[Rfam]
RNA sequence: UCAAAAAAUAGGCCGAAUCUCCGGCAGAACCGGAGUACGGGGGAUCAAAUAACAUGGGGUGAAUCCGCAAACCUUCCUCGGAGUUGCUCAAAGGUGCGGUAGGGUGCCCUUCAACCCGAACCCGUCAACUAACCUCGAAGGCCAGCAGAGGGGGAAAAA
Numbered sequence: 001u002c003a004a005a006a007a008a009u010a011g012g013c014c015g016a017a018u019c020u021c022c023g024g025c026a027g028a029a030c031c032g033g034a035g036u037a038c039g040g041g042g043g044a045u046c047a048a049a050u051a052a053c054a055u056g057g058g059g060u061g062a063a064u065c066c067g068c069a070a071a072c073c074u075u076c077c078u079c080g081g082a083g084u085u086g087c088u089c090a091a092a093g094g095u096g097c098g099g100u101a102g103g104g105u106g107c108c109c110u111u112c113a114a115c116c117c118g119a120a121c122c123c124g125u126c127a128a129c130u131a132a133c134c135u136c137g138a139a140g141g142c143c144a145g146c147a148g149a150g151g152g153g154g155a156a157a158a159a
Base pairs, nucleotide, nucleotide: 011143012142013141014140019035020034021033022032023031024030038137039136040135041134042133048055057123058122059121065099066098067097068096102117103116104115105114

Description:
Rfam assigns this 159-nucleotide RNA from Desulforamulus ferrireducens to the family "c-di-AMP riboswitch aptamer (ydaO/yuaA leader)". Its family is annotated with regulation of gene expression and cyclic-di-AMP binding in the Gene Ontology. A search with the family's covariance model found it, with a score of 89 bits.